[Rfam]
RNA: FMN riboswitch aptamer (RFN element)
RNA sequence: UCGCGUGCUCUGGGGGCGGUGAAAUUCCGCACCGGCGGUGAAAGUCCGCGACCCGGCCACCUCCAGUGGUCGGUUGAGCAGGUGAAAUUCCUGCACCGACGGUUAAAGUCCGGAUGAGAAGCGCACGCAG
Number, nucleotide and partner (000 for none) at each position: 001u000002c000003g128004c127005g126006u125007g124008c123009u000010c121011u000012g000013g000014g000015g000016g000017c029018g028019g027020u000021g000022a000023a000024a000025u000026u000027c019028c018029g017030c000031a109032c108033c098034g097035g049036c048037g047038g046039u000040g000041a000042a000043a000044g096045u095046c038047c037048g036049c035050g000051a000052c000053c073054c072055g000056g000057c000058c000059a000060c000061c000062u000063c000064c000065a000066g000067u000068g000069g000070u000071c000072g054073g053074u000075u000076g000077a000078g094079c093080a092081g091082g090083u000084g000085a000086a000087a000088u000089u000090c082091c081092u080093g079094c078095a045096c044097c034098g033099a000100c112101g111102g110103u000104u000105a000106a000107a000108g032109u031110c102111c101112g100113g000114a000115u000116g000117a000118g000119a000120a000121g010122c000123g008124c007125a006126c005127g004128c003129a000130g000